[Rfam]
RNA sequence: AGUGUGAGUAGAAGCGGUCAGCACAGAUAUCGGUGCGGGACAUUGCUCAGCAA
Numbered sequence: 001a002g003u004g005u006g007a008g009u010a011g012a013a014g015c016g017g018u019c020a021g022c023a024c025a026g027a028u029a030u031c032g033g034u035g036c037g038g039g040a041c042a043u044u045g046c047u048c049a050g051c052a053a
Base pairs, nucleotide, nucleotide: 005049006048007047008046009045010044015038018040019039021036022035023034024033026031
RNA: Xanthine riboswitch aptamer (NMT1 RNA)